[Rfam]
RNA sequence: UCUUCAGUGAGGUACAUCCUUACCUGUUACUCCCUACCAAGGAGUAUCAGAGCAUGAUGAAUGGGGAAUCAUGAGAUAUGAUUAAUAUCUCUGUCUUUUAGGGAAAGCAACACCCUACUAGAUCCAUUCUGAU
Numbered sequence: 001u002c003u004u005c006a007g008u009g010a011g012g013u014a015c016a017u018c019c020u021u022a023c024c025u026g027u028u029a030c031u032c033c034c035u036a037c038c039a040a041g042g043a044g045u046a047u048c049a050g051a052g053c054a055u056g057a058u059g060a061a062u063g064g065g066g067a068a069u070c071a072u073g074a075g076a077u078a079u080g081a082u083u084a085a086u087a088u089c090u091c092u093g094u095c096u097u098u099u100a101g102g103g104a105a106a107g108c109a110a111c112a113c114c115c116u117a118c119u120a121g122a123u124c125c126a127u128u129c130u131g132a133u
Stems, first nucleotide, its partner, number of pairs: 024050003028046006073091002076088003079084001095121002099117004
A member of the RNA family "U8 small nucleolar RNA" from Gasterosteus aculeatus, 133 nucleotides long. Lineage of the source: Eukaryota > Metazoa > Eumetazoa > Clupeocephala > Gasterosteus. The literature on the family includes a 1997 paper in Mol Cell Biol by Peculis, "The sequence of the 5' end of the U8 small nucleolar RNA is critical for 5.8S and 28S rRNA maturation".